Rfam assigns this 87-nucleotide sequence from Oceanicoccus sagamiensis to the family "c-di-GMP-I riboswitch aptamer".
RNA sequence: UUUGGAUAGCGCCAAACCGGUGGUGACAUCGGGACGGAAAACUACAGGUCUUUAUAGUAAUGACAUAAAGAUGGCUGAGUUACCCUU
Numbered sequence: 001u002u003u004g005g006a007u008a009g010c011g012c013c014a015a016a017c018c019g020g021u022g023g024u025g026a027c028a029u030c031g032g033g034a035c036g037g038a039a040a041a042c043u044a045c046a047g048g049u050c051u052u053u054a055u056a057g058u059a060a061u062g063a064c065a066u067a068a069a070g071a072u073g074g075c076u077g078a079g080u081u082a083c084c085c086u087u
Stems, first nucleotide, its partner, number of pairs: 012037002017032006040081004045077003048072003057064002